[Rfam]
RNA: Group II catalytic intron D1-D4-4
Organism: Cohnella fermenti
RNA sequence: UCGUCGGUGAAAGUCCGGCCAAGGUAAGAGCCAAGUCGCCUUGUAGCUGACAGGCAACUGGUGGAGAAAUCCUAAGGUUGAAGCCCUGUGACAAAGCAUUCCAUACGGAUUGAGCAAAAGUUCAGACCGUAACAUCA
Dot-bracket structure: ...................(((((..............)))))......((((((((((....((....))....)))))....)))))......(.((((.....)))))..((.............)).......